The record is a 140-nucleotide RNA sequence from Hordeum vulgare, which matches "Small nucleolar RNA F1/F2/snoR5a" in Rfam. It is annotated as an H/ACA-box small nucleolar RNA. Rfam's curators write: This family contains F1, F2 and snoR5a sequences, all of which are members of the the H/ACA class of snoRNA that guide the sites of modification of uridines to pseudouridines.
[Rfam]
RNA sequence: UAGUGCCAUUUGGUAUCUCAUACAUGGUCAUUUUUUGUGAUUCUGUGUCUCAAAACAUGGCAGAAACUCAGGGCAAAUAGAACUUUGUGACACUGGCUGCUCUUAAUGAGCCUCCAGUUACUAUAUACCCGUUUAUAUUA
Numbered sequence: 001u002a003g004u005g006c007c008a009u010u011u012g013g014u015a016u017c018u019c020a021u022a023c024a025u026g027g028u029c030a031u032u033u034u035u036u037g038u039g040a041u042u043c044u045g046u047g048u049c050u051c052a053a054a055a056c057a058u059g060g061c062a063g064a065a066a067c068u069c070a071g072g073g074c075a076a077a078u079a080g081a082a083c084u085u086u087g088u089g090a091c092a093c094u095g096g097c098u099g100c101u102c103u104u105a106a107u108g109a110g111c112c113u114c115c116a117g118u119u120a121c122u123a124u125a126u127a128c129c130c131g132u133u134u135a136u137a138u139u140a
Stems, first nucleotide, its partner, number of pairs: 004062006020048005026042004076133003080129001092118005099111003
Pairs were carried over by alignment from the consensus structure, which was predicted with PFOLD. NCBI's taxonomy places the organism under Eukaryota, Magnoliopsida, Liliopsida, Pooideae, Hordeum vulgare. Its family is annotated with RNA processing and nucleolus in the Gene Ontology.